[Rfam]
RNA sequence: CGGGUCGGCGGCCGCCGACCCGCCACUGACACCGGUACCUGACACGGCCGGUGCAG
Numbered sequence: 001c002g003g004g005u006c007g008g009c010g011g012c013c014g015c016c017g018a019c020c021c022g023c024c025a026c027u028g029a030c031a032c033c034g035g036u037a038c039c040u041g042a043c044a045c046g047g048c049c050g051g052u053g054c055a056g
Base pairs, nucleotide, nucleotide: 001022002021003020004019005018006017007016008015009014026056027055028054030053031052032051033050034049035048036047

The family of this 56-nucleotide RNA sequence from Actinacidiphila yeochonensis is "L17-Actino-Proteobacteria ribosomal protein leader". The base pairs follow the family's consensus structure, which is taken from published work. It is one of the family's seed sequences. A reference for the family is Eckert and Weinberg (2020), "Discovery of 20 novel ribosomal leader candidates in bacteria and archaea", BMC Microbiol.